RNA sequence: UGCUAUGAUGCUGUAAUUUGCGCCUUACUCUGUUUUCAGUGACAGUUGCCUGCUGUCAGUAAGCUGGUACAGAAGGUUGCUGAAAAAGUUUCUCUGAGCA
Numbered sequence: 001u002g003c004u005a006u007g008a009u010g011c012u013g014u015a016a017u018u019u020g021c022g023c024c025u026u027a028c029u030c031u032g033u034u035u036u037c038a039g040u041g042a043c044a045g046u047u048g049c050c051u052g053c054u055g056u057c058a059g060u061a062a063g064c065u066g067g068u069a070c071a072g073a074a075g076g077u078u079g080c081u082g083a084a085a086a087a088g089u090u091u092c093u094c095u096g097a098g099c100a
Base pairs, nucleotide, nucleotide: 001100002099003098021082022081024079030072031071032070033069039064040063041057042056043055044054045053
The family of this 100-nucleotide RNA from Sarcophilus harrisii is "Small nucleolar RNA SNORD16". Gene Ontology terms of the family: RNA processing and nucleolus. Lineage of the source: Eukaryota > Deuterostomia > Mammalia > Dasyuridae > Sarcophilus. Rfam classes the family as a C/D-box small nucleolar RNA.